[Rfam]
RNA: U8 small nucleolar RNA
RNA sequence: UCGUCAGUGAGGUACAUCCUUACCUGUUACUUCCUCCGGGAAGUUGCAGAACAUGAUGAAUGGAGAUUCAUGAGGCAUGAUUAUUGUCUCCUUCUUAGUAGGAACAGCAACACCUGCUAGGAACCAUUCUGAU
Numbered sequence: 001u002c003g004u005c006a007g008u009g010a011g012g013u014a015c016a017u018c019c020u021u022a023c024c025u026g027u028u029a030c031u032u033c034c035u036c037c038g039g040g041a042a043g044u045u046g047c048a049g050a051a052c053a054u055g056a057u058g059a060a061u062g063g064a065g066a067u068u069c070a071u072g073a074g075g076c077a078u079g080a081u082u083a084u085u086g087u088c089u090c091c092u093u094c095u096u097a098g099u100a101g102g103a104a105c106a107g108c109a110a111c112a113c114c115u116g117c118u119a120g121g122a123a124c125c126a127u128u129c130u131g132a133u
Stems, first nucleotide, its partner, number of pairs: 024049003028046001030043005072090002075087003078083001094121009